[Rfam]
RNA sequence: CUGCAUCCAGGCAGGGUAGAUACCAUGAUCACGAAGGUGGUUUUCCCAGGGUGAGGCUCAUUCAUUGCACUGCGGGUGUGCUGACCCCUGCGAUUUCCCCAAAUGCGGGAAACUCGACUGCAGAAUUUGUGGUAGUGGGGGACUGCGUUCGCGCUCUCCCCUG
Numbered sequence: 001c002u003g004c005a006u007c008c009a010g011g012c013a014g015g016g017u018a019g020a021u022a023c024c025a026u027g028a029u030c031a032c033g034a035a036g037g038u039g040g041u042u043u044u045c046c047c048a049g050g051g052u053g054a055g056g057c058u059c060a061u062u063c064a065u066u067g068c069a070c071u072g073c074g075g076g077u078g079u080g081c082u083g084a085c086c087c088c089u090g091c092g093a094u095u096u097c098c099c100c101a102a103a104u105g106c107g108g109g110a111a112a113c114u115c116g117a118c119u120g121c122a123g124a125a126u127u128u129g130u131g132g133u134a135g136u137g138g139g140g141g142a143c144u145g146c147g148u149u150c151g152c153g154c155u156c157u158c159c160c161c162u163g
Base pairs, nucleotide, nucleotide: 011121012120013119014118015047016046018044019043020042022041023040024039025038026037048089049088050087051086053085055082056081057080059078060077061076062075063074091116092115093114094112095111096110098108099107137162138161139160140159141158142157145154146153147152
The family of this 163-nucleotide RNA from Platysternon megacephalum is "U1 spliceosomal RNA". Rfam describes the family as follows. U1 is a small nuclear RNA (snRNA) component of the spliceosome (involved in pre-mRNA splicing). Its 5' end forms complementary base pairs with the 5' splice junction, thus defining the 5' donor site of an intron. There are significant differences in sequence and secondary structure between metazoan and yeast U1 snRNAs, the latter being much longer (568 nucleotides as compared to 164 nucleotides in human). Nevertheless, secondary structure predictions suggest that all U1 snRNAs share a 'common core' consisting of helices I, II, the proximal region of III, and IV. This family does not contain the larger yeast sequences. The base pairs follow the family's consensus structure, which is taken from published work. A search with the family's covariance model found it, with a score of 138 bits. Its Rfam clan is "U1 clan". Rfam 15.1 lists 40,184 matches to the family in 1,499 species.